[Rfam]
A member of the RNA family "Histone 3' UTR stem-loop" from Branchiostoma belcheri, 46 nucleotides long. NCBI's taxonomy places the organism under Eukaryota, Deuterostomia, Cephalochordata, Amphioxiformes, Branchiostoma. Rfam describes the family as follows. The mRNAs of metazoan histone genes lack a poly-A tail. 3' end processing occurs at a site between a highly conserved stem-loop (modelled by this family) and a purine rich region around 20 nts downstream (the histone downstream element, or HDE). It is annotated as a cis-regulatory element. The family's consensus secondary structure is taken from published work.
RNA sequence: ACCCCGGCCUUUUUCAAGGCCACCCACAUCCCCACAAAAGAGCUGG
Numbered sequence: 001a002c003c004c005c006g007g008c009c010u011u012u013u014u015c016a017a018g019g020c021c022a023c024c025c026a027c028a029u030c031c032c033c034a035c036a037a038a039a040g041a042g043c044u045g046g
Stems, first nucleotide, its partner, number of pairs: 006021006